RNA sequence: GCCCUCAAUGGCUCAGUAGCCAGUGUAGAUCCUGUCAUUUGUAAUCAGUAGCUACAUCUGGCUACUGGGUCUCUGAUGG
Numbered sequence: 001g002c003c004c005u006c007a008a009u010g011g012c013u014c015a016g017u018a019g020c021c022a023g024u025g026u027a028g029a030u031c032c033u034g035u036c037a038u039u040u041g042u043a044a045u046c047a048g049u050a051g052c053u054a055c056a057u058c059u060g061g062c063u064a065c066u067g068g069g070u071c072u073c074u075g076a077u078g079g
Base pairs, nucleotide, nucleotide: 013068014067015066016065017064018063020061021060022059023057024056025055026054027053028052032051033050034049035048

mir-221 microRNA precursor family: a 79-nucleotide sequence from Sus scrofa. The organism belongs to Sus, within Eukaryota. A reference for the family is Yao et al. (2008), "MicroRNA profile of Marek's disease virus-transformed T-cell line MSB-1: predominance of virus-encoded microRNAs", J Virol.